[Rfam]
RNA sequence: UUCAUGUAUCAUCUCCGAGCCGUGCAGCCUAACAGGUUCCCUCAUGGUGCCCGGCCUACGGGUUUCGCUGGAAACGGCGGGGCCUCCCUUUCGGAAAGGAGUAAGCAAGCCCUUG
Numbered sequence: 001u002u003c004a005u006g007u008a009u010c011a012u013c014u015c016c017g018a019g020c021c022g023u024g025c026a027g028c029c030u031a032a033c034a035g036g037u038u039c040c041c042u043c044a045u046g047g048u049g050c051c052c053g054g055c056c057u058a059c060g061g062g063u064u065u066c067g068c069u070g071g072a073a074a075c076g077g078c079g080g081g082g083c084c085u086c087c088c089u090u091u092c093g094g095a096a097a098g099g100a101g102u103a104a105g106c107a108a109g110c111c112c113u114u115g
Stems, first nucleotide, its partner, number of pairs: 003109001006106001013101004019055004024050002027048003034042003060085011086094002